[Rfam]
RNA: Guanidine-I riboswitch aptamer
Organism: Anaerosalibacter bizertensis
RNA sequence: UGAAAGUGUGCCUAGGGUUCCGAAGAAUAAUUCUUGUCUGGACCGAGCGGUACAAGUAUUGGACAGCCAAUACUACACCGAGGGGGGGAAAAGCCCGGACGGG
Numbered sequence: 001u002g003a004a005a006g007u008g009u010g011c012c013u014a015g016g017g018u019u020c021c022g023a024a025g026a027a028u029a030a031u032u033c034u035u036g037u038c039u040g041g042a043c044c045g046a047g048c049g050g051u052a053c054a055a056g057u058a059u060u061g062g063a064c065a066g067c068c069a070a071u072a073c074u075a076c077a078c079c080g081a082g083g084g085g086g087g088g089a090a091a092a093g094c095c096c097g098g099a100c101g102g103g
Stems, first nucleotide, its partner, number of pairs: 007054006015044002020041002022038001023035005055074008076098001078101001082096003